[Rfam]
RNA sequence: GGAUCGAUUAUGAGUCCUGCAUCAAAGUAUUACUUGGAAAAGCUGAAUAAAAUGAGUGAAACUCACUACUGUCUCACUUAUCAGAACUGAGGUCC
Numbered sequence: 001g002g003a004u005c006g007a008u009u010a011u012g013a014g015u016c017c018u019g020c021a022u023c024a025a026a027g028u029a030u031u032a033c034u035u036g037g038a039a040a041a042g043c044u045g046a047a048u049a050a051a052a053u054g055a056g057u058g059a060a061a062c063u064c065a066c067u068a069c070u071g072u073c074u075c076a077c078u079u080a081u082c083a084g085a086a087c088u089g090a091g092g093u094c095c
Base pairs, nucleotide, nucleotide: 001095002094003093004092005091028058029057030056031055034050035049036048
The record is a 95-nucleotide RNA from Otolemur garnettii, which matches "Small nucleolar RNA SNORD116" in Rfam. Rfam 15.1 lists 3,260 matches to the family in 170 species. For this family Rfam cites "Identification of brain-specific and imprinted small nucleolar RNA genes exhibiting an unusual genomic organization" (Cavaille et al., Proc Natl Acad Sci U S A, 2000).